RNA sequence: ACAAUGUUAUAACUCCGAACUGGUAUACCUACACUUCUGAUAAUUAGAAGCAGGGUCUGCUAGUCUUUAGGGUUAGAAGGGAAACUUUCUAGCCUCCCAAGGUGGAAAGGAGAUUUUAGACUAAGAAU
Numbered sequence: 001a002c003a004a005u006g007u008u009a010u011a012a013c014u015c016c017g018a019a020c021u022g023g024u025a026u027a028c029c030u031a032c033a034c035u036u037c038u039g040a041u042a043a044u045u046a047g048a049a050g051c052a053g054g055g056u057c058u059g060c061u062a063g064u065c066u067u068u069a070g071g072g073u074u075a076g077a078a079g080g081g082a083a084a085c086u087u088u089c090u091a092g093c094c095u096c097c098c099a100a101g102g103u104g105g106a107a108a109g110g111a112g113a114u115u116u117u118a119g120a121c122u123a124a125g126a127a128u
Base pairs, nucleotide, nucleotide: 003122011114013112014111015110016109019064020063021062022061023060024059025058027056028055029054034050035049036048037047038046039045070095071094072093073092074091075090076089077088078087079086080085096105097104

Annotation
Shown here is a 128-nucleotide RNA sequence from Heliorestis acidaminivorans, a member of the family "Molybdenum/Tungsten riboswitch aptamer (Moco RNA motif)". Rfam 15.1 lists 1,248 matches to the family in 836 species. The match comes from Rfam's covariance-model search (69 bits). A reference for the family is Regulski et al. (2008), "in molybdenum cofactor and tungsten cofactor metabolism", Mol Microbiol. Taxonomically the source falls in Heliorestis (Bacteria, Clostridia, Eubacteriales, Heliobacteriaceae).